[Rfam]
RNA: U1 spliceosomal RNA
RNA sequence: AUACUUACCUGGCAGGGGAGAUACAUGAUUACGAAAGUGGUUUUCCCAGGGCGAGGCUUAUCCAUUGCACUCCGGAUGUGCUGACCCCUGUGAUUUCCCCAAAUGUAGGAAACUCAACUGCAUAAUUUGUGGUAAUAGGGGACUGCGUUAAUUCUUUCCCCAG
Number, nucleotide and partner (000 for none) at each position: 001a000002u000003a000004c000005u000006u000007a000008c000009c000010u000011g000012g121013c120014a119015g118016g047017g046018g045019a044020g043021a042022u000023a041024c039025a038026u037027g000028a000029u000030u000031a000032c000033g000034a000035a000036a000037g026038u025039g024040g000041u023042u021043u020044u019045c018046c017047c016048a089049g088050g087051g086052c000053g085054a000055g082056g081057c080058u000059u078060a077061u076062c075063c074064a000065u000066u000067g000068c000069a000070c000071u000072c000073c000074g063075g062076a061077u060078g059079u000080g057081c056082u055083g000084a000085c053086c051087c050088c049089u048090g000091u116092g115093a114094u112095u111096u110097c000098c108099c000100c000101a000102a000103a000104u000105g000106u000107a000108g098109g000110a096111a095112a094113c000114u093115c092116a091117a000118c015119u014120g013121c012122a000123u000124a000125a000126u000127u000128u000129g000130u000131g000132g000133u000134a000135a000136u000137a000138g161139g160140g159141g158142a157143c000144u000145g154146c000147g152148u000149u000150a000151a000152u147153u000154c145155u000156u000157u142158c141159c140160c139161c138162a000163g000